[Rfam]
RNA sequence: UGAAGAAAAUGAUGAAAGUUGUAUAUCGGUGAUUCAUAUGAUCGAUAAAAAUUUCAACUCGCUACGUUCUUUCUGAUUCUUAC
Numbered sequence: 001u002g003a004a005g006a007a008a009a010u011g012a013u014g015a016a017a018g019u020u021g022u023a024u025a026u027c028g029g030u031g032a033u034u035c036a037u038a039u040g041a042u043c044g045a046u047a048a049a050a051a052u053u054u055c056a057a058c059u060c061g062c063u064a065c066g067u068u069c070u071u072u073c074u075g076a077u078u079c080u081u082a083c
Stems, first nucleotide, its partner, number of pairs: 004080004
Dot-bracket structure: ...((((.....................................................................))))...
The family of this 83-nucleotide RNA sequence from Raphanus sativus is "Small nucleolar RNA R32/R81/Z41". Rfam classes the family as a C/D-box small nucleolar RNA. Its family is annotated with RNA processing and nucleolus in the Gene Ontology. It scores 90 bits against the family's covariance model.